[Rfam]
RNA: Small nucleolar RNA SNORA30/SNORA37 family
RNA sequence: CUAGCACUUUCAUAGGUCCUCCCCAGGCAGUGGGGCCAGGAUUUGGUAGCUGGUGCUUAAAGAAAGCCCUUGAUUGCAUUCUUGUCCUGGAACUAUGCCAGUGGCAUCUGUCACUCAAUGGGACAGAG
Dot-bracket structure: ..((((((....(((.((((((((.......))))..)))).)))......)))))).........(((((((.((.((...((((((((.......)))).))))...)))).)))).)))......
Numbered sequence: 001c002u003a004g005c006a007c008u009u010u011c012a013u014a015g016g017u018c019c020u021c022c023c024c025a026g027g028c029a030g031u032g033g034g035g036c037c038a039g040g041a042u043u044u045g046g047u048a049g050c051u052g053g054u055g056c057u058u059a060a061a062g063a064a065a066g067c068c069c070u071u072g073a074u075u076g077c078a079u080u081c082u083u084g085u086c087c088u089g090g091a092a093c094u095a096u097g098c099c100a101g102u103g104g105c106a107u108c109u110g111u112c113a114c115u116c117a118a119u120g121g122g123a124c125a126g127a128g
Stems, first nucleotide, its partner, number of pairs: 003057006013045003017041004021035004067122003070118004075113002078111002083106004087101004